[Rfam]
RNA sequence: AAGCGAUAAUACUAAACCACCAGCAAUGGUGGGACGGAAAGCCCAAGGGUCUCACGCAGACAGCCGGGUACCGAA
Numbered sequence: 001a002a003g004c005g006a007u008a009a010u011a012c013u014a015a016a017c018c019a020c021c022a023g024c025a026a027u028g029g030u031g032g033g034a035c036g037g038a039a040a041g042c043c044c045a046a047g048g049g050u051c052u053c054a055c056g057c058a059g060a061c062a063g064c065c066g067g068g069u070a071c072c073g074a075a
Base pairs, nucleotide, nucleotide: 012037013036017032018031019030020029021028022027040069042067043066047065048064049061050060051059
Annotation
Shown here is a 75-nucleotide sequence from Geobacter sp. OR-1, a member of the family "c-di-GMP-I riboswitch aptamer".